[Rfam]
RNA: Small nucleolar RNA SNORA31
Organism: Chrysochloris asiatica
RNA sequence: AUGCAUCUAUUUGACAGACCUGGAGCACUUUAAUGUCUGCUUCUAAGGUUUCACUACAGAUGCAAGAAAAAAGUUCUUUGCGCUUUCUGUCUGUCUGCUUAUGACAGCCAAGAUUGAAUAGGGGAAUACAGGA
Number, nucleotide and partner (000 for none) at each position: 001a000002u064003g063004c062005a061006u060007c059008u058009a000010u000011u000012u053013g052014a000015c000016a051017g050018a049019c048020c047021u000022g000023g042024a041025g040026c039027a038028c000029u035030u000031u000032a000033a000034u000035g029036u000037c000038u027039g026040c025041u024042u023043c000044u000045a000046a000047g020048g019049u018050u017051u016052c013053a012054c000055u000056a000057c000058a008059g007060a006061u005062g004063c003064a002065a000066g000067a000068a000069a000070a000071a000072a000073g000074u000075u125076c124077u123078u122079u121080g000081c000082g000083c116084u000085u000086u113087c112088u111089g000090u000091c107092u106093g105094u104095c103096u000097g000098c000099u000100u000101a000102u000103g095104a094105c093106a092107g091108c000109c000110a000111a088112g087113a086114u000115u000116g083117a000118a000119u000120a000121g079122g078123g077124g076125a075126a000127u000128a000129c000130a000131g000132g000133a000